[Rfam]
RNA sequence: AUAUUAGCCGAUGCAGCAUCAUCAAGAUUCCCAUUUUUUUUUUCUUUUAAAGGAACCAUUAAUUCGAUCGAGUACCACCAUACGUAUAUCCCCAUAUACAGCAACGUCGAAGCUCCUUAUUAAAGUUUUUUGUGAAUCUUGAUGGUGCUGCAUCAGCGAAUAC
Dot-bracket structure: .........(((((((((((((((((((((.((.................................................................................................)).))))))))))))))))))))).........
Source information:
The record is a 163-nucleotide RNA from Acer saccharum, which matches "mir-172 microRNA precursor family" in Rfam. On this family, see Jones-Rhoades and Bartel, Mol Cell 2004: "Computational Identification of Plant MicroRNAs and Their Targets, Including a Stress-Induced miRNA". Gene Ontology terms of the family: RISC complex and miRNA-mediated post-transcriptional gene silencing. The organism belongs to Acer, within Eukaryota. Rfam describes the family as follows. mir-172 has been experimentally verified in Arabidopsis thaliana. This family is thought to target mRNAs coding for APETALA2-like transcription factors. The mature sequence is excised from the 3' arm of the hairpin.